[Rfam]
RNA sequence: AUUGGUCCGCCGGGAGAGCGCGGAUCGGUCCGCCGCCGAAGGAGCAUGCCGCGUCCCGCGGGUCUCUCAGGCAAAAGGACCGGCGAGGCCAA
Numbered sequence: 001a002u003u004g005g006u007c008c009g010c011c012g013g014g015a016g017a018g019c020g021c022g023g024a025u026c027g028g029u030c031c032g033c034c035g036c037c038g039a040a041g042g043a044g045c046a047u048g049c050c051g052c053g054u055c056c057c058g059c060g061g062g063u064c065u066c067u068c069a070g071g072c073a074a075a076a077g078g079a080c081c082g083g084c085g086a087g088g089c090c091a092a
Stems, first nucleotide, its partner, number of pairs: 006087001008085006020033004035072003038068002042066003048059002
Rfam assigns this 92-nucleotide RNA sequence from Pseudoroseicyclus aestuarii to the family "Glycine riboswitch aptamer". From the family's description: This family represents the bacterial glycine riboswitch. Gene Ontology term of the family: glycine biosynthetic process. Pairs were carried over by alignment from the consensus structure.